RNA sequence: ACAUCUCCCUGUCCCUUAUAUCCAAAUCUUUCCCUUGGGAGUGACAGCUUUAUAGUUGAAAUCCCAUCUCGAGGAGAGGUUUUAGUCGGUAGGCGCUACGGCGAAUCCGACACUACCCCCCUUCAGGGGGUGUCUUUUGAAGAUUUCCCCUCCUCGAGGCUA
Numbered sequence: 001a002c003a004u005c006u007c008c009c010u011g012u013c014c015c016u017u018a019u020a021u022c023c024a025a026a027u028c029u030u031u032c033c034c035u036u037g038g039g040a041g042u043g044a045c046a047g048c049u050u051u052a053u054a055g056u057u058g059a060a061a062u063c064c065c066a067u068c069u070c071g072a073g074g075a076g077a078g079g080u081u082u083u084a085g086u087c088g089g090u091a092g093g094c095g096c097u098a099c100g101g102c103g104a105a106u107c108c109g110a111c112a113c114u115a116c117c118c119c120c121c122u123u124c125a126g127g128g129g130g131u132g133u134c135u136u137u138u139g140a141a142g143a144u145u146u147c148c149c150c151u152c153c154u155c156g157a158g159g160c161u162a
Stems, first nucleotide, its partner, number of pairs: 006040004011035001046161005070156005076149001078147001085111005094103003113132001116130004
The record is a 162-nucleotide RNA sequence from Agrilus planipennis, which matches "R2 RNA element" in Rfam. A reference for the family is Ruschak et al. (2004), "Secondary structure models of the 3' untranslated regions of diverse R2 RNAs", RNA. The organism belongs to Agrilus, within Eukaryota. This family represents the 3' UTR region of the R2 retrotransposable element. This family is known to interact with the R2-encoded reverse transcriptase in a reaction known as target primed reverse transcription (TPRT). A search with the family's covariance model found it, with a score of 49 bits.